The record is a 99-nucleotide RNA sequence from a Bathymodiolus platifrons methanotrophic gill symbiont, which matches "TPP riboswitch aptamer (THI element)" in Rfam. The source organism's lineage runs through Bacteria, Pseudomonadati, Pseudomonadota and Gammaproteobacteria.
RNA sequence: ACUAAAGGCUAGGGGUGCUACGUUAUUAUGUAGCUGAGAAAACACCCUUCGAACCUGAGACCAGCUAAUACUGGCGUAGGAAAGCCCUAGGAAUCGGUU
Numbered sequence: 001a002c003u004a005a006a007g008g009c010u011a012g013g014g015g016u017g018c019u020a021c022g023u024u025a026u027u028a029u030g031u032a033g034c035u036g037a038g039a040a041a042a043c044a045c046c047c048u049u050c051g052a053a054c055c056u057g058a059g060a061c062c063a064g065c066u067a068a069u070a071c072u073g074g075c076g077u078a079g080g081a082a083a084g085c086c087c088u089a090g091g092a093a094u095c096g097g098u099u
Base pairs, nucleotide, nucleotide: 007086008085009084010083011048012047013046014045016042017034018033019032020031021030054080055079056078057077061074062073063072064071